[Rfam]
Rfam assigns this 76-nucleotide sequence from Desulfuromonas acetoxidans to the family "c-di-GMP-I-GGC riboswitch aptamer". The family's consensus secondary structure is taken from published work.

RNA sequence: CAAGAUAAAGGCAAAACCGAAGUAAUUCGGUGACGCAAAGCCACGGGUCCAUAACUGGAUCGCCGGGUUGCUCAAC
Numbered sequence: 001c002a003a004g005a006u007a008a009a010g011g012c013a014a015a016a017c018c019g020a021a022g023u024a025a026u027u028c029g030g031u032g033a034c035g036c037a038a039a040g041c042c043a044c045g046g047g048u049c050c051a052u053a054a055c056u057g058g059a060u061c062g063c064c065g066g067g068u069u070g071c072u073c074a075a076c
Stems, first nucleotide, its partner, number of pairs: 004072001011036002016031006034062001039069004044065003047060003